[Rfam]
RNA sequence: UCGUGCUAGACGGGGAGGUAGCGGUGCCCUGUACCCGCAAGCCGCUAUAGCGGGGUCGAAUUCCUGUCCGCGGAUUUAGCUUGUGGGGUCCGGCUCCUGUAAGGGGUGACGACGGUUGGGUCUUGCGCGACGGAGACUUCUGAACCGUGUCAGGUCCUGGCGGAAGCAGCACUAAGGAAGCCCCUCCGGGUGCCGCAAGGGCGCCUGACCCGAGCUACCUGCAGGAGUAACGCCCGGAAGCUAUUAUUCAACGACAGGUGCACGG
Numbered sequence: 001u002c003g004u005g006c007u008a009g010a011c012g013g014g015g016a017g018g019u020a021g022c023g024g025u026g027c028c029c030u031g032u033a034c035c036c037g038c039a040a041g042c043c044g045c046u047a048u049a050g051c052g053g054g055g056u057c058g059a060a061u062u063c064c065u066g067u068c069c070g071c072g073g074a075u076u077u078a079g080c081u082u083g084u085g086g087g088g089u090c091c092g093g094c095u096c097c098u099g100u101a102a103g104g105g106g107u108g109a110c111g112a113c114g115g116u117u118g119g120g121u122c123u124u125g126c127g128c129g130a131c132g133g134a135g136a137c138u139u140c141u142g143a144a145c146c147g148u149g150u151c152a153g154g155u156c157c158u159g160g161c162g163g164a165a166g167c168a169g170c171a172c173u174a175a176g177g178a179a180g181c182c183c184c185u186c187c188g189g190g191u192g193c194c195g196c197a198a199g200g201g202c203g204c205c206u207g208a209c210c211c212g213a214g215c216u217a218c219c220u221g222c223a224g225g226a227g228u229a230a231c232g233c234c235c236g237g238a239a240g241c242u243a244u245u246a247u248u249c250a251a252c253g254a255c256a257g258g259u260g261c262a263c264g265g
Stems, first nucleotide, its partner, number of pairs: 001265006009057003012030004017025001019023001034054005063258006072249004078242005084236004091232002095226006103219002105216003114210008122199006128190001131188005137180005147172004155164003

This 265-nucleotide RNA sequence from Desulfofundulus thermobenzoicus belongs to the Rfam family "Bacterial large signal recognition particle RNA". A search with the family's covariance model found it, with a score of 216 bits. The family's RNA type in Rfam is non-coding RNA gene. The literature on the family includes a 2003 paper in Nucleic Acids Res by Rosenblad et al., "SRPDB: Signal Recognition Particle Database".